mir-219 microRNA precursor family: a 75-nucleotide sequence from Capitella teleta. For this family Rfam cites "Computational identification of Drosophila microRNA genes" (Lai et al., Genome Biol, 2003). Gene Ontology terms of the family: RISC complex and miRNA-mediated post-transcriptional gene silencing. Taxonomically the source falls in Capitella (Eukaryota, Metazoa, Annelida, Capitellidae). The family has 92 seed sequences and 1,318 matches in Rfam 15.1.
[Rfam]
RNA sequence: UUUAGCAUUGAUUGUCCAAACGCAAUUCUUGUUCACUUCGUUCUCCAAGAACUGUGUUCGGACAUCAAUCCUAGC
Numbered sequence: 001u002u003u004a005g006c007a008u009u010g011a012u013u014g015u016c017c018a019a020a021c022g023c024a025a026u027u028c029u030u031g032u033u034c035a036c037u038u039c040g041u042u043c044u045c046c047a048a049g050a051a052c053u054g055u056g057u058u059c060g061g062a063c064a065u066c067a068a069u070c071c072u073a074g075c
Stems, first nucleotide, its partner, number of pairs: 002074004007069001009067004014063004021056004026051006